[Rfam]
RNA sequence: CUGGCUCCCAGAAAUAAAAGGCACUCUUAAAACAUAAAAUGUCUUUAAAUAGAGGUGCAGAUAGCAAGUGGAUCUUGUGGCCUUUGGAGGGCUGUGACUGUGCCCCUCGAAGUGAAUGUGGGGGGUUCUACGUCC
Numbered sequence: 001c002u003g004g005c006u007c008c009c010a011g012a013a014a015u016a017a018a019a020g021g022c023a024c025u026c027u028u029a030a031a032a033c034a035u036a037a038a039a040u041g042u043c044u045u046u047a048a049a050u051a052g053a054g055g056u057g058c059a060g061a062u063a064g065c066a067a068g069u070g071g072a073u074c075u076u077g078u079g080g081c082c083u084u085u086g087g088a089g090g091g092c093u094g095u096g097a098c099u100g101u102g103c104c105c106c107u108c109g110a111a112g113u114g115a116a117u118g119u120g121g122g123g124g125g126u127u128c129u130a131c132g133u134c135c
Base pairs, nucleotide, nucleotide: 002060004058005057007055008054019044020043021042022041023040025038027036070128071127072126073125074124075123076122082112083111084110085109086108087107089105090104091103092102

A member of the RNA family "Small nucleolar RNA SNORA68" from Otolemur garnettii, 135 nucleotides long. The family has 26 seed sequences and 1,079 matches in Rfam 15.1. It is annotated as an H/ACA-box small nucleolar RNA. The match comes from Rfam's covariance-model search (74 bits). The organism belongs to Otolemur, within Eukaryota.